RNA sequence: AUAAAAGAAAGGGAGCUCCUUUUGGUCCAAUACAGGGGGCAGAGAAGGGGAUAGAGCUGCCAUCUCAUGCAUUCCGGCUAUGCUUAAACCUUUACCUUCAUCGUCUAAUGUUAAGCAGAGCCAGAUGCAUGGCGUGGGAGCAACUCCUUCCCCAUCCUUUGCCCACCCAUUGGACUGAAGGGAGCUCCCUGCUUCAUUGCA
Numbered sequence: 001a002u003a004a005a006a007g008a009a010a011g012g013g014a015g016c017u018c019c020u021u022u023u024g025g026u027c028c029a030a031u032a033c034a035g036g037g038g039g040c041a042g043a044g045a046a047g048g049g050g051a052u053a054g055a056g057c058u059g060c061c062a063u064c065u066c067a068u069g070c071a072u073u074c075c076g077g078c079u080a081u082g083c084u085u086a087a088a089c090c091u092u093u094a095c096c097u098u099c100a101u102c103g104u105c106u107a108a109u110g111u112u113a114a115g116c117a118g119a120g121c122c123a124g125a126u127g128c129a130u131g132g133c134g135u136g137g138g139a140g141c142a143a144c145u146c147c148u149u150c151c152c153c154a155u156c157c158u159u160u161g162c163c164c165a166c167c168c169a170u171u172g173g174a175c176u177g178a179a180g181g182g183a184g185c186u187c188c189c190u191g192c193u194u195c196a197u198u199g200c201a
Stems, first nucleotide, its partner, number of pairs: 013187008023177007036164001057140002060137003066131008

Shown here is a 201-nucleotide RNA from Gossypium armourianum, a member of the family "MIR159 microRNA precursor family". Its family is annotated with miRNA-mediated post-transcriptional gene silencing and RISC complex in the Gene Ontology. A search with the family's covariance model found it, with a score of 103 bits. Lineage of the source: Eukaryota > Spermatophyta > Magnoliopsida > malvids > Gossypium. The literature on the family includes a 2006 paper in Genes Dev by Rajagopalan et al., "A diverse and evolutionarily fluid set of microRNAs in Arabidopsis thaliana".